[Rfam]
RNA sequence: AUCGUUCAAUCUAACUAGUUUAGAUCGGAAGUAGGCCACAGCUGAAGGAACGCGCA
Dot-bracket structure: ..(((((.(((((.......)))))..[.....(((....)))....)))))]...
Shown here is a 56-nucleotide RNA, a member of the family "Glutamine riboswitch aptamer (glnA leader)". It is one of the family's seed sequences. The base pairs follow the family's consensus structure, which is taken from published work. Its family is annotated with glutamine binding in the Gene Ontology. The literature on the family includes a 2015 paper in Cell Rep by Ren et al., "Structural and Dynamic Basis for Low-Affinity, High-Selectivity Binding of L-Glutamine by the Glutamine Riboswitch".